[Rfam]
RNA sequence: GAGUGGAGAGGGGAGAGGAGACAGGGAUGGAGCAGAGCAAGGGAUGGGGCAAGCAACAAACCUCACUUCCUUCCACUCAGCAUCACCUGAUUAGUAUGGUUUAUGAGAAGAGCGAGAGAGUUGUGAGAGAUGGGAGCUUCUGUAGUAGUUGUUGUUGCUCCCUCCCUGCACUGCCUCUUCCCUGGCUCCCCUCCGAUCUCUAUCU
Numbered sequence: 001g002a003g004u005g006g007a008g009a010g011g012g013g014a015g016a017g018g019a020g021a022c023a024g025g026g027a028u029g030g031a032g033c034a035g036a037g038c039a040a041g042g043g044a045u046g047g048g049g050c051a052a053g054c055a056a057c058a059a060a061c062c063u064c065a066c067u068u069c070c071u072u073c074c075a076c077u078c079a080g081c082a083u084c085a086c087c088u089g090a091u092u093a094g095u096a097u098g099g100u101u102u103a104u105g106a107g108a109a110g111a112g113c114g115a116g117a118g119a120g121u122u123g124u125g126a127g128a129g130a131u132g133g134g135a136g137c138u139u140c141u142g143u144a145g146u147a148g149u150u151g152u153u154g155u156u157g158c159u160c161c162c163u164c165c166c167u168g169c170a171c172u173g174c175c176u177c178u179u180c181c182c183u184g185g186c187u188c189c190c191c192u193c194c195g196a197u198c199u200c201u202a203u204c205u
Stems, first nucleotide, its partner, number of pairs: 018188003022184006030176001032174004037169003041165001043164001047160006

A member of the RNA family "MIR408 microRNA precursor family" from Triticum aestivum, 205 nucleotides long. Lineage of the source: Eukaryota > Streptophyta > Poales > Triticodae > Triticum. It scores 76 bits against the family's covariance model. The family has 8 seed sequences and 299 matches in Rfam 15.1. Rfam links the family to the GO terms RISC complex and miRNA-mediated post-transcriptional gene silencing.